[Rfam]
RNA: mir-1788 microRNA precursor family
RNA sequence: UAGCAUUCGAGGCUUGUUUUAAGUUGCCUGCGCUCAGUGUAAAAGACUCAGGCAGCUAAAGCAAGUCUGGGACGCCA
Numbered sequence: 001u002a003g004c005a006u007u008c009g010a011g012g013c014u015u016g017u018u019u020u021a022a023g024u025u026g027c028c029u030g031c032g033c034u035c036a037g038u039g040u041a042a043a044a045g046a047c048u049c050a051g052g053c054a055g056c057u058a059a060a061g062c063a064a065g066u067c068u069g070g071g072a073c074g075c076c077a
Base pairs, nucleotide, nucleotide: 003075004074006072007071008070010068011067012066013065014064015063016062017061018060019059020058022057023056024055025054026053027052028051029050030049032047